The family of this 131-nucleotide RNA sequence from Struthio camelus is "Small Cajal body specific RNA 15". Rfam 15.1 lists 635 matches to the family in 528 species.
[Rfam]
RNA sequence: CUGGAGGACUAAGAAAGUGGAGCCAGUGAAGUUGUAUUGACUCUGCUGAUACCAUCCUCCUAAAUGAAAUGGUGGAAGAACAAGGCCUGUCUGUGAGAUGGAGUCAGGACCUACUUUCUCUACCUACAAGG
Numbered sequence: 001c002u003g004g005a006g007g008a009c010u011a012a013g014a015a016a017g018u019g020g021a022g023c024c025a026g027u028g029a030a031g032u033u034g035u036a037u038u039g040a041c042u043c044u045g046c047u048g049a050u051a052c053c054a055u056c057c058u059c060c061u062a063a064a065u066g067a068a069a070u071g072g073u074g075g076a077a078g079a080a081c082a083a084g085g086c087c088u089g090u091c092u093g094u095g096a097g098a099u100g101g102a103g104u105c106a107g108g109a110c111c112u113a114c115u116u117u118c119u120c121u122a123c124c125u126a127c128a129a130g131g
Stems, first nucleotide, its partner, number of pairs: 003060006010051002018045005024039001026035003071124006078117001083112003086108004
About this RNA:
Rfam's curators write: scaRNAs are a specific class of small nuclear RNAs which localise to the Cajal bodies and guide the modification of RNA polymerase II transcribed spliceosomal RNAs U1, U2, U4, U5 and U12. It is annotated as a small Cajal body RNA. On this family, see Darzacq et al., EMBO J 2002: "Cajal body-specific small nuclear RNAs: a novel class of 2'-O-methylation and pseudouridylation guide RNAs". The family's consensus secondary structure was predicted with RNAfold.